[Rfam]
About this RNA: A member of the RNA family "Small nucleolar RNA snoR99" from Gossypium australe, 102 nucleotides long. The family's consensus secondary structure was predicted with WAR. Rfam links the family to the GO terms nucleolus and RNA processing.
RNA sequence: UUGCUUUUGGGAUUGACUGUUCCCUCAUGUUAAAUAUCCAUCUAAAUCACUUUAUCAGUUGCCAUUUUGGUGGCACGCUGAUCAUCAUAAGAUAGUUUCCAA
Numbered sequence: 001u002u003g004c005u006u007u008u009g010g011g012a013u014u015g016a017c018u019g020u021u022c023c024c025u026c027a028u029g030u031u032a033a034a035u036a037u038c039c040a041u042c043u044a045a046a047u048c049a050c051u052u053u054a055u056c057a058g059u060u061g062c063c064a065u066u067u068u069g070g071u072g073g074c075a076c077g078c079u080g081a082u083c084a085u086c087a088u089a090a091g092a093u094a095g096u097u098u099c100c101a102a
Base pairs, nucleotide, nucleotide: 038095040093041092042091054082055081056080057079058078059077